[Rfam]
RNA sequence: GGCCCGCUAUACCUUAAGUGGAGCCGCAAAAGAAACACGACAAUAUCACGACAUACCGCCUGGAUUCGCGACGAACCGGUACGGGAAG
Numbered sequence: 001g002g003c004c005c006g007c008u009a010u011a012c013c014u015u016a017a018g019u020g021g022a023g024c025c026g027c028a029a030a031a032g033a034a035a036c037a038c039g040a041c042a043a044u045a046u047c048a049c050g051a052c053a054u055a056c057c058g059c060c061u062g063g064a065u066u067c068g069c070g071a072c073g074a075a076c077c078g079g080u081a082c083g084g085g086a087a088g
Stems, first nucleotide, its partner, number of pairs: 001025003004021005010016001056084003060079004065075003
Shown here is an 88-nucleotide RNA sequence from Geomonas silvestris, a member of the family "pan motif". A search with the family's covariance model found it, with a score of 38 bits. The organism belongs to Geomonas, within Bacteria. Rfam classes the family as a cis-regulatory element.